RNA: Nuclear RNase P
Organism: Crocodylus porosus
RNA sequence: UCAGAAGGAAGCUCACCACUGAGAUCACUUGCUGAGUGCUGGUCACUCCCUUCUCUCUGCCUCUGGGAAGGUCUGAGACAAGAGCCAGCAGCUGCCCUUGCAAGGCACACCCUGAUGCAGGGGGAUGAGGUACCAGGGAAGCUGGGCCCUACCUUGGGAGAGGCACAAGAAACCAAAGAACAAGGGUUUUGUUCCUUCUCUGUCCAUUCCCUGUGGAGUCUUUGAGAGAGGCUUGUGGCUGGCACUUCUGAGUCCAAUGGCAUGAGAUGAGGCCUGUGUCUCCUCCUGCUCACAACCCAGUUCAGACUAUUCUUUUUCUGA
Dot-bracket structure: ((((..(((..[[[[.[...(((..........(((((.....)))))............))).........(((((.....((((......((((.......))))(.((((.....)))).)(((((.(............(((........................................................................)))........).)))))))))...................]..]]]].((((.................))))........))))).......)))..))))